[Rfam]
This 79-nucleotide RNA sequence from Tetranychus urticae belongs to the Rfam family "mir-5729 microRNA precursor family". It is one of the family's seed sequences. Rfam links the family to the GO terms RISC complex and miRNA-mediated post-transcriptional gene silencing.
Nucleotides: 079
Stems, first nucleotide, its partner, number of pairs: 002078010013068001015067003020062003025057003030054004034049006
Number, partner (000 for none) and nucleotide at each position: 001000u002078u003077a004076c005075c006074c007073u008072g009071a010070c011069c012000a013068g014000u015067g016066g017065u018000a019000a020062g021061a022060u023000a024000a025057g026056c027055a028000a029000a030054g031053g032052c033051u034049a035048g036047g037046g038045g039044u040000g041000a042000c043000g044039a045038c046037c047036u048035c049034u050000a051033a052032g053031u054030c055027u056026g057025c058000g059000g060022a061021u062020c063000g064000a065017a066016c067015c068013c069011g070010g071009u072008c073007a074006g075005g076004g077003u078002g079000c